[Rfam]
RNA sequence: ACCCCAGGUUUUACGCAUAACAGUGAGGAUUCGUCCGAGUUUGCGUUUUUGCUAGUUGAAAACUAUUACCAUGACCGCUCUUCUCGACCCUCGGGUCUUGGAGGAAUUUUUGAACCAAACCUUCUCGGCAGAGAUU
Numbered sequence: 001a002c003c004c005c006a007g008g009u010u011u012u013a014c015g016c017a018u019a020a021c022a023g024u025g026a027g028g029a030u031u032c033g034u035c036c037g038a039g040u041u042u043g044c045g046u047u048u049u050u051g052c053u054a055g056u057u058g059a060a061a062a063c064u065a066u067u068a069c070c071a072u073g074a075c076c077g078c079u080c081u082u083c084u085c086g087a088c089c090c091u092c093g094g095g096u097c098u099u100g101g102a103g104g105a106a107u108u109u110u111u112g113a114a115c116c117a118a119a120c121c122u123u124c125u126c127g128g129c130a131g132a133g134a135u136u
Stems, first nucleotide, its partner, number of pairs: 013046005019041003027036003079104005086097004117136002120133001